RNA sequence: AUACUUACCUAGCGGAGGAGACACCAUGAUCAGGCAGGUGGUUUUCCCAGGGCAAGGCUUAUCCCUUGCACUCCGGGUGUGCUGACCCCUGCGAUUUCCCCAAAUGCAGGAAACUCGACUGCAUAAUUUGUGGUAGUGGGGGAUUGCGUUUUAGAGCUACA
Numbered sequence: 001a002u003a004c005u006u007a008c009c010u011a012g013c014g015g016a017g018g019a020g021a022c023a024c025c026a027u028g029a030u031c032a033g034g035c036a037g038g039u040g041g042u043u044u045u046c047c048c049a050g051g052g053c054a055a056g057g058c059u060u061a062u063c064c065c066u067u068g069c070a071c072u073c074c075g076g077g078u079g080u081g082c083u084g085a086c087c088c089c090u091g092c093g094a095u096u097u098c099c100c101c102a103a104a105u106g107c108a109g110g111a112a113a114c115u116c117g118a119c120u121g122c123a124u125a126a127u128u129u130g131u132g133g134u135a136g137u138g139g140g141g142g143a144u145u146g147c148g149u150u151u152u153a154g155a156g157c158u159a160c161a
Stems, first nucleotide, its partner, number of pairs: 012122004017047005023042005049090004056083003060079005092117003095113003099109001142160001144159001146157002149154001
Notes: A member of the RNA family "U1 spliceosomal RNA" from Nothoprocta ornata, 161 nucleotides long. It is annotated as a spliceosomal small nuclear RNA.